[Rfam]
RNA sequence: UUCCUGCACACACACCUGAAGAUCCCAGGUGGGCGAGGGAAUAGUCAGAGGGAUC
Numbered sequence: 001u002u003c004c005u006g007c008a009c010a011c012a013c014a015c016c017u018g019a020a021g022a023u024c025c026c027a028g029g030u031g032g033g034c035g036a037g038g039g040a041a042u043a044g045u046c047a048g049a050g051g052g053a054u055c
Base pairs, nucleotide, nucleotide: 001040002039003038004037005036007035009033011031012030013029021055022054023053024052025051026050

Rfam assigns this 55-nucleotide sequence from Herpetotheres cachinnans to the family "Antizyme RNA frameshifting stimulation element". Taxonomically the source falls in Herpetotheres (Eukaryota, Tetrapoda, Sauria, Saurischia). The family has 13 seed sequences and 1,595 matches in Rfam 15.1. About the family: This family represents a structural element which is found in antizyme mRNA and is known to promote frameshifting. Antizyme genes have have two partially overlapping open reading frames, the second, which encodes the functional protein requires +1 translational frameshifting. This frameshift is stimulated by a pseudoknot present 3' of the frameshift site in the antizyme mRNA. The frameshifting efficiency is dependent on the level of polyamines in the cell, when the polyamine concentration is high frameshifting is more likely to occur which leads to an increase in the quantity of functional antizyme produced. By type it is a frameshift element. Rfam links the family to the GO term translational frameshifting.